[Rfam]
RNA sequence: GACAGUUCUCAGGGCGGGGUGUAAUUCCCCACCGGCGGUUAUAGUCCGCGAGCGCUGCUUGAAUUGGAUCUUGGAUUUGAAACAAGCGGGUCAGCAGAUCUGGUGAAAUUCCAGAACCGACGGUUACAGUCCGGAUGGUAGAGAAUGGGA
Numbered sequence: 001g002a003c004a005g006u007u008c009u010c011a012g013g014g015c016g017g018g019g020u021g022u023a024a025u026u027c028c029c030c031a032c033c034g035g036c037g038g039u040u041a042u043a044g045u046c047c048g049c050g051a052g053c054g055c056u057g058c059u060u061g062a063a064u065u066g067g068a069u070c071u072u073g074g075a076u077u078u079g080a081a082a083c084a085a086g087c088g089g090g091u092c093a094g095c096a097g098a099u100c101u102g103g104u105g106a107a108a109u110u111c112c113a114g115a116a117c118c119g120a121c122g123g124u125u126a127c128a129g130u131c132c133g134g135a136u137g138g139u140a141g142a143g144a145a146u147g148g149g150a
Stems, first nucleotide, its partner, number of pairs: 003148001005146006017029003031130002033119002035049004044117002052095002099115005121133003
The record is a 150-nucleotide RNA from Pacificibacter maritimus, which matches "FMN riboswitch aptamer (RFN element)" in Rfam.